[Rfam]
RNA sequence: GUCAGCAACCCCGCCCUGAAGGACGGGGCUUGCGAGGAGAGAUCCGAGCAAGCCCGAUGUUGACCAGACCGAGCGGUAACCAGUCCGCUACGUUGAGUAGAAGUUAAGGACCCACCCCGGAAUACUUCCUCAGUUCCGGGCUCUGGAAGUUGCAGAUGCAGACAAGCUUCGGGUGAGCACGAAACGGUCUGCGACCGGCGGCCUUCAAAAGCCUCCAGGCUGCUACUCAACAUGGUCGAGGGGAGCGGUGU
Numbered sequence: 001g002u003c004a005g006c007a008a009c010c011c012c013g014c015c016c017u018g019a020a021g022g023a024c025g026g027g028g029c030u031u032g033c034g035a036g037g038a039g040a041g042a043u044c045c046g047a048g049c050a051a052g053c054c055c056g057a058u059g060u061u062g063a064c065c066a067g068a069c070c071g072a073g074c075g076g077u078a079a080c081c082a083g084u085c086c087g088c089u090a091c092g093u094u095g096a097g098u099a100g101a102a103g104u105u106a107a108g109g110a111c112c113c114a115c116c117c118c119g120g121a122a123u124a125c126u127u128c129c130u131c132a133g134u135u136c137c138g139g140g141c142u143c144u145g146g147a148a149g150u151u152g153c154a155g156a157u158g159c160a161g162a163c164a165a166g167c168u169u170c171g172g173g174u175g176a177g178c179a180c181g182a183a184a185c186g187g188u189c190u191g192c193g194a195c196c197g198g199c200g201g202c203c204u205u206c207a208a209a210a211g212c213c214u215c216c217a218g219g220c221u222g223c224u225a226c227u228c229a230a231c232a233u234g235g236u237c238g239a240g241g242g243g244a245g246c247g248g249u250g251u
Stems, first nucleotide, its partner, number of pairs: 001064007010028002012025002015022002029052004067237005072089005092231009102221001112146002116140008126245006149195009163186001169182003173178001

Rfam assigns this 251-nucleotide RNA from Variovorax sp. JS1663 to the family "HNH endonuclease-associated RNA and ORF (HEARO) RNA". The organism belongs to Variovorax, within Bacteria. It is annotated as a non-coding RNA gene. The base pairs follow the family's consensus structure, which is taken from published work.